Burkholderia sRNA Bp1_Cand684_SIPHT: a 112-nucleotide RNA from Caballeronia glathei.
Rfam 15.1 lists 176 matches to the family in 44 species.
Rfam classes the family as a small RNA.
Lineage of the source: Bacteria > Pseudomonadota > Burkholderiales > Burkholderiaceae > Caballeronia.
RNA sequence: AAGAAAGUGACUGCCGCCCCGCACAGGGGCGAAGCUAAUAAACCAAUAUCAAAGCAAGUUUCAUAGGAGCGCAAGCGCAUCAGACGGUGUUCACAACCCCCGACCGCCCCCC
Numbered sequence: 001a002a003g004a005a006a007g008u009g010a011c012u013g014c015c016g017c018c019c020c021g022c023a024c025a026g027g028g029g030c031g032a033a034g035c036u037a038a039u040a041a042a043c044c045a046a047u048a049u050c051a052a053a054g055c056a057a058g059u060u061u062c063a064u065a066g067g068a069g070c071g072c073a074a075g076c077g078c079a080u081c082a083g084a085c086g087g088u089g090u091u092c093a094c095a096a097c098c099c100c101c102g103a104c105c106g107c108c109c110c111c112c
Stems, first nucleotide, its partner, number of pairs: 011075001012073003015031006060065001097102001
Dot-bracket structure: ..........((((((((((.....))))))............................(....).....))).).....................(....)..........